The family of this 75-nucleotide RNA is "L13-Bacteroidia ribosomal protein leader". Rfam's curators put it in the seed alignment. The family's consensus secondary structure is taken from published work. The literature on the family includes a 2020 paper in BMC Microbiol by Eckert and Weinberg, "Discovery of 20 novel ribosomal leader candidates in bacteria and archaea".
[Rfam]
RNA sequence: GGGGGUGAACUUAGAGCCUCCGCUGCAACCGUGUUAAUAGUCAUGCUUUUGGCCGAGCCUGGCGGUUAGUGAAUC
Numbered sequence: 001g002g003g004g005g006u007g008a009a010c011u012u013a014g015a016g017c018c019u020c021c022g023c024u025g026c027a028a029c030c031g032u033g034u035u036a037a038u039a040g041u042c043a044u045g046c047u048u049u050u051g052g053c054c055g056a057g058c059c060u061g062g063c064g065g066u067u068a069g070u071g072a073a074u075c
Stems, first nucleotide, its partner, number of pairs: 001021006034069005040063004045058004